Annotation:
This 265-nucleotide RNA from Seminavis robusta belongs to the Rfam family "RNase MRP". Taxonomically the source falls in Seminavis (Eukaryota, Bacillariophyta, Bacillariophyceae, Bacillariophycidae). Rfam 15.1 lists 3,510 matches to the family in 2,315 species. Rfam's curators write: RNase MRP is an enzymatically active ribonucleoprotein with two distinct roles in eukaryotes. In mitochondria it plays a direct role in the initiation of mitochondrial DNA replication. In the nucleus it is involved in precursor rRNA processing, where it cleaves the internal transcribed spacer 1 between 18S and 5.8S rRNAs. Despite distinct functions, RNase MRP has been shown to be evolutionarily related to RNase P. Like eukaryotic RNase P, RNase MRP is not catalytically active without associated protein subunits.
RNA sequence: GGAUGCGUUUGAGCCAAGGCUUUCGAGGAGCGCUCCGUCUCUUUGGAGACCGAGGGCAUGUCGACCAUGUUGACGAGCUUCUUGGGGAAAUUCCCCGGACGCAAAGACAGAGAUGUCUAUCCGGAAACGGAUGCCGGCUUGGGAUGCCGCUCGGGCGACGACGACACUCUGUUGUGUAAGAGCCAUGGUGGGUCGUGCUCCCUUGUCGCCGUCGUAGCAAAGUAAUGCCGCAGUCGAACCCAACGGGGAUUACUCCAAACGCAUA
Numbered sequence: 001g002g003a004u005g006c007g008u009u010u011g012a013g014c015c016a017a018g019g020c021u022u023u024c025g026a027g028g029a030g031c032g033c034u035c036c037g038u039c040u041c042u043u044u045g046g047a048g049a050c051c052g053a054g055g056g057c058a059u060g061u062c063g064a065c066c067a068u069g070u071u072g073a074c075g076a077g078c079u080u081c082u083u084g085g086g087g088a089a090a091u092u093c094c095c096c097g098g099a100c101g102c103a104a105a106g107a108c109a110g111a112g113a114u115g116u117c118u119a120u121c122c123g124g125a126a127a128c129g130g131a132u133g134c135c136g137g138c139u140u141g142g143g144a145u146g147c148c149g150c151u152c153g154g155g156c157g158a159c160g161a162c163g164a165c166a167c168u169c170u171g172u173u174g175u176g177u178a179a180g181a182g183c184c185a186u187g188g189u190g191g192g193u194c195g196u197g198c199u200c201c202c203u204u205g206u207c208g209c210c211g212u213c214g215u216a217g218c219a220a221a222g223u224a225a226u227g228c229c230g231c232a233g234u235c236g237a238a239c240c241c242a243a244c245g246g247g248g249a250u251u252a253c254u255c256c257a258a259a260c261g262c263a264u265a
Stems, first nucleotide, its partner, number of pairs: 003264009014230001018229003023085009089251003093248004106117004118133006136202002141199002145197003149193004154184003163173004